[Rfam]
RNA: Glutamine-II riboswitch aptamer
RNA sequence: GUCCGUUCAUCGCUUUAUGCGACGCAUGUAAUCAAGUCAUGGAACGGGGGCUUGGU
Numbered sequence: 001g002u003c004c005g006u007u008c009a010u011c012g013c014u015u016u017a018u019g020c021g022a023c024g025c026a027u028g029u030a031a032u033c034a035a036g037u038c039a040u041g042g043a044a045c046g047g048g049g050g051c052u053u054g055g056u
Base pairs, nucleotide, nucleotide: 004046005045006044007043008042010022011021012020013019031056032055033054034053035052036051037049038048